A member of the RNA family "Small nucleolar RNA snR191" from Lasiosphaeris hirsuta, 244 nucleotides long. The family's consensus secondary structure was predicted with WAR. Its family is annotated with RNA processing and nucleolus in the Gene Ontology. Its Rfam clan is "SNORA74 clan".

RNA sequence: CCCCAGGGGUUUAGUCAGGAUCCUUCCGCACUCUGUGCAUAAUUUAAUGGGAGCGGUCCGUUACAUUCCUGGGAGAGUGAUCUCCACCUCCUCCGUCCUCGGUCUGGUCAUCAGAUCUUGGGCAGAUGGUCUCCGUCUUGGGGGCUGUCACUGGAUACCGAACGUGCUUCUGAUGAGUUGAAGGCCAUCACUAUCCAUUGCGGUUUAGCACAGGGUGGCCUUCUUAGUGAUGAAGCAUACAUCU
Numbered sequence: 001c002c003c004c005a006g007g008g009g010u011u012u013a014g015u016c017a018g019g020a021u022c023c024u025u026c027c028g029c030a031c032u033c034u035g036u037g038c039a040u041a042a043u044u045u046a047a048u049g050g051g052a053g054c055g056g057u058c059c060g061u062u063a064c065a066u067u068c069c070u071g072g073g074a075g076a077g078u079g080a081u082c083u084c085c086a087c088c089u090c091c092u093c094c095g096u097c098c099u100c101g102g103u104c105u106g107g108u109c110a111u112c113a114g115a116u117c118u119u120g121g122g123c124a125g126a127u128g129g130u131c132u133c134c135g136u137c138u139u140g141g142g143g144g145c146u147g148u149c150a151c152u153g154g155a156u157a158c159c160g161a162a163c164g165u166g167c168u169u170c171u172g173a174u175g176a177g178u179u180g181a182a183g184g185c186c187a188u189c190a191c192u193a194u195c196c197a198u199u200g201c202g203g204u205u206u207a208g209c210a211c212a213g214g215g216u217g218g219c220c221u222u223c224u225u226a227g228u229g230a231u232g233a234a235g236c237a238u239a240c241a242u243c244u
Stems, first nucleotide, its partner, number of pairs: 003072005018059005024053004029037003083162001088160001095123004101117006129145007164238004169233002180223004185218004191208003195203002